The record is a 201-nucleotide sequence from Papaver somniferum, which matches "U2 spliceosomal RNA" in Rfam.
By type it is a spliceosomal small nuclear RNA.
A reference for the family is Zwieb (1997), "The uRNA database", Nucleic Acids Res.
NCBI's taxonomy places the organism under Eukaryota, Viridiplantae, Magnoliopsida, Papaveroideae, Papaver.
U2 is a small nuclear RNA (snRNA) component of the spliceosome (involved in pre-mRNA splicing).
The family is grouped with related families in Rfam's "U2 clan".
RNA sequence: AUACCUUUCUCUGCCGUUUGGCUAACAUCAAGUGCAGCGUCUAUUCUUAUCAGUUUGCUAUCUUAUAUGUGAGCCAUCGGUUCGCACGAUAUUAAAUUAUUUUGUUUCAUGGCUGAGUUCCCGUCACAGCAGCAAGGUUCUGGGUUCUUAUGCGUUGCCCUUGUGUUGCAUGCAUUACUACAAGGUCCUGGUGCACCCCCA
Number, nucleotide and partner (000 for none) at each position: 001a000002u000003a000004c000005c000006u000007u000008u027009c000010u025011c000012u000013g022014c021015c020016g000017u000018u000019u000020g015021g014022c013023u000024a000025a010026c000027a008028u000029c000030a000031a000032g000033u000034g000035c000036a000037g000038c000039g000040u000041c000042u000043a000044u000045u000046c000047u000048u067049a066050u065051c000052a063053g062054u000055u000056u000057g000058c000059u000060a000061u000062c053063u052064u000065a050066u049067a048068u000069g085070u084071g083072a082073g081074c080075c079076a000077u000078c000079g075080g074081u073082u072083c071084g070085c069086a000087c000088g000089a000090u000091a000092u000093u000094a000095a000096a000097u000098u000099a000100u000101u000102u000103u000104g000105u000106u000107u000108c000109a000110u000111g000112g000113c000114u000115g149116a148117g147118u000119u000120c144121c143122c142123g000124u000125c000126a000127c000128a000129g140130c000131a138132g000133c000134a000135a000136g000137g000138u131139u000140c129141u000142g122143g121144g120145u000146u000147c117148u116149u115150a000151u000152g194153c193154g192155u191156u190157g189158c000159c185160c184161u183162u182163g181164u180165g000166u000167u000168g000169c000170a000171u000172g000173c000174a000175u000176u000177a000178c000179u000180a164181c163182a162183a161184g160185g159186u000187c000188c000189u157190g156191g155192u154193g153194c152195a000196c000197c000198c000199c000200c000201a000